[Rfam]
RNA sequence: UCGCAGGGUCGCAACUGGCGUUGAGGUGGGCAACCACCGGGGAGCGACUGACAUCGACGCGGCCGUACGCCUGGGCCGCCCGA
Numbered sequence: 001u002c003g004c005a006g007g008g009u010c011g012c013a014a015c016u017g018g019c020g021u022u023g024a025g026g027u028g029g030g031c032a033a034c035c036a037c038c039g040g041g042g043a044g045c046g047a048c049u050g051a052c053a054u055c056g057a058c059g060c061g062g063c064c065g066u067a068c069g070c071c072u073g074g075g076c077c078g079c080c081c082g083a
Stems, first nucleotide, its partner, number of pairs: 007049006015041002017071005026037004060078005
RNA: ZMP/ZTP riboswitch aptamer (pfl RNA motif)
Organism: Homoserinimonas aerilata